The record is an 80-nucleotide RNA sequence from Cupriavidus taiwanensis, which matches "Cupriavidus-1 RNA" in Rfam.

RNA sequence: CUUGCAUCGCGGUGACCGGCGAAUCCGCCGAAGGCAAUGCAAGACGCGUACCGGGUGCUGCGACAAUGCGCGGCGCGCGG
Numbered sequence: 001c002u003u004g005c006a007u008c009g010c011g012g013u014g015a016c017c018g019g020c021g022a023a024u025c026c027g028c029c030g031a032a033g034g035c036a037a038u039g040c041a042a043g044a045c046g047c048g049u050a051c052c053g054g055g056u057g058c059u060g061c062g063a064c065a066a067u068g069c070g071c072g073g074c075g076c077g078c079g080g
Stems, first nucleotide, its partner, number of pairs: 001043006007036001009035002011016001017030005051080003055076008
It is annotated as a small RNA. The sequence is in the family's curated seed alignment.